[Rfam]
RNA: Plastid-clpP 5UTR RNA
RNA sequence: ACAUUUGUUCGUAAGAACAAAGAGAAGCAGAUCAUCUAUACCGAUAAGUACCAAUACGCAAGGGAG
Numbered sequence: 001a002c003a004u005u006u007g008u009u010c011g012u013a014a015g016a017a018c019a020a021a022g023a024g025a026a027g028c029a030g031a032u033c034a035u036c037u038a039u040a041c042c043g044a045u046a047a048g049u050a051c052c053a054a055u056a057c058g059c060a061a062g063g064g065a066g
Base pairs, nucleotide, nucleotide: 004021006019007018008017009016010015041064042063048057049056050055